[Rfam]
RNA sequence: UCAUUAUCGACGCUGAGUUUUCUUUUGAGAAAAACGGGGGAACCAAGUACCAUGGGGUGAAUCGACAGGCAGCCUGCUGCACGUCGUAGGGCGAAUUCUCACUGCCCGAAUCCGACAGCUAACCUCGUAAGCGAAGUGGGAAGGAUAG
Numbered sequence: 001u002c003a004u005u006a007u008c009g010a011c012g013c014u015g016a017g018u019u020u021u022c023u024u025u026u027g028a029g030a031a032a033a034a035c036g037g038g039g040g041a042a043c044c045a046a047g048u049a050c051c052a053u054g055g056g057g058u059g060a061a062u063c064g065a066c067a068g069g070c071a072g073c074c075u076g077c078u079g080c081a082c083g084u085c086g087u088a089g090g091g092c093g094a095a096u097u098c099u100c101a102c103u104g105c106c107c108g109a110a111u112c113c114g115a116c117a118g119c120u121a122a123c124c125u126c127g128u129a130a131g132c133g134a135a136g137u138g139g140g141a142a143g144g145a146u147a148g
Stems, first nucleotide, its partner, number of pairs: 011133004018033005034128006044054002055113003063086004089107004